[Rfam]
RNA: Small nucleolar RNA R16
RNA sequence: AAUGACAUAUGAUGAGCAAAAUUCUUAUCCUACACACUGAAUCCUUUUGUGUGGACUUCUAAAUACUCUGCUUAUUGACUGAUGUCAUU
Numbered sequence: 001a002a003u004g005a006c007a008u009a010u011g012a013u014g015a016g017c018a019a020a021a022u023u024c025u026u027a028u029c030c031u032a033c034a035c036a037c038u039g040a041a042u043c044c045u046u047u048u049g050u051g052u053g054g055a056c057u058u059c060u061a062a063a064u065a066c067u068c069u070g071c072u073u074a075u076u077g078a079c080u081g082a083u084g085u086c087a088u089u
Stems, first nucleotide, its partner, number of pairs: 003087005